TPP riboswitch aptamer (THI element): a 111-nucleotide RNA sequence from Nocardioides sp. S5. Lineage of the source: Bacteria > Actinomycetota > Actinomycetes > Propionibacteriales > Nocardioides. Gene Ontology term of the family: thiamine pyrophosphate binding.
[Rfam]
RNA sequence: CGCCGUCCACACGGGAGUCCGCGGUAGCGGGCUGAGAGGGAGCUGUACACCGCUCCGACCGUCGCACCUGAUCCGGGUCAUGCCGGCGAAGGAAGUGAGUUCCGGUGUCAC
Numbered sequence: 001c002g003c004c005g006u007c008c009a010c011a012c013g014g015g016a017g018u019c020c021g022c023g024g025u026a027g028c029g030g031g032c033u034g035a036g037a038g039g040g041a042g043c044u045g046u047a048c049a050c051c052g053c054u055c056c057g058a059c060c061g062u063c064g065c066a067c068c069u070g071a072u073c074c075g076g077g078u079c080a081u082g083c084c085g086g087c088g089a090a091g092g093a094a095g096u097g098a099g100u101u102c103c104g105g106u107g108u109c110a111c
Stems, first nucleotide, its partner, number of pairs: 006099001008097003011062004017032005039056005067092003073086004